Rfam assigns this 33-nucleotide RNA from Abyssalbus ytuae to the family "DUF805b RNA".
RNA sequence: AACAGGGAAUCCGAAAACUGUACAGAGUAGGAG
Numbered sequence: 001a002a003c004a005g006g007g008a009a010u011c012c013g014a015a016a017a018c019u020g021u022a023c024a025g026a027g028u029a030g031g032a033g
Base pairs, nucleotide, nucleotide: 002021003020004019005018010032011031012030